Shown here is a 119-nucleotide RNA from Aequorivita aquimaris, a member of the family "SAM riboswitch aptamer (S box leader)". Pairs were carried over by alignment from the consensus structure, which is taken from published work. The match comes from Rfam's covariance-model search (73 bits). NCBI's taxonomy places the organism under Bacteria, Bacteroidota, Flavobacteriales, Flavobacteriaceae, Aequorivita.
[Rfam]
RNA sequence: AUGUUAUCAAGAAAGGCCGAGGGAAUAGACCCUAUGACGCCUUAGCAACCCUUUCUCCGGAAAGAAGGUGCUACAUUCUACAACAAUCCUGAAAAUUCAGAAUUGAUGAUAGAUAACGA
Numbered sequence: 001a002u003g004u005u006a007u008c009a010a011g012a013a014a015g016g017c018c019g020a021g022g023g024a025a026u027a028g029a030c031c032c033u034a035u036g037a038c039g040c041c042u043u044a045g046c047a048a049c050c051c052u053u054u055c056u057c058c059g060g061a062a063a064g065a066a067g068g069u070g071c072u073a074c075a076u077u078c079u080a081c082a083a084c085a086a087u088c089c090u091g092a093a094a095a096u097u098c099a100g101a102a103u104u105g106a107u108g109a110u111a112g113a114u115a116a117c118g119a
Stems, first nucleotide, its partner, number of pairs: 002118007013043005021032003026080004044072004049068002051064004076111001081108002084105003